[Rfam]
RNA sequence: GCGCUUCUAUCGCACACCCGUUCGAAAGGCGGGGUCGCAAAGCCUCCGGUCUACCUUCCCGACCCGGGACCAGGACAGCGGGGUUGCCGCA
Numbered sequence: 001g002c003g004c005u006u007c008u009a010u011c012g013c014a015c016a017c018c019c020g021u022u023c024g025a026a027a028g029g030c031g032g033g034g035u036c037g038c039a040a041a042g043c044c045u046c047c048g049g050u051c052u053a054c055c056u057u058c059c060c061g062a063c064c065c066g067g068g069a070c071c072a073g074g075a076c077a078g079c080g081g082g083g084u085u086g087c088c089g090c091a
Base pairs, nucleotide, nucleotide: 012038013037017033018032019031020030022029023028041085042084043083044082046081047080048079049076050075051074057069058068059067
RNA: c-di-GMP-I riboswitch aptamer